This 51-nucleotide RNA sequence belongs to the Rfam family "eL15-Euryarchaeota ribosomal protein leader". A reference for the family is Eckert and Weinberg (2020), "Discovery of 20 novel ribosomal leader candidates in bacteria and archaea", BMC Microbiol. The base pairs follow the family's consensus structure, which is taken from published work.
RNA sequence: CGGGAUACGUCCCGUAAGGAAUGUAGCCUGAAAAAUAGGCUGAACCUUGGA
Numbered sequence: 001c002g003g004g005a006u007a008c009g010u011c012c013c014g015u016a017a018g019g020a021a022u023g024u025a026g027c028c029u030g031a032a033a034a035a036u037a038g039g040c041u042g043a044a045c046c047u048u049g050g051a
Base pairs, nucleotide, nucleotide: 001014002013003012004011005010017047018046019045025041026040027039028038029037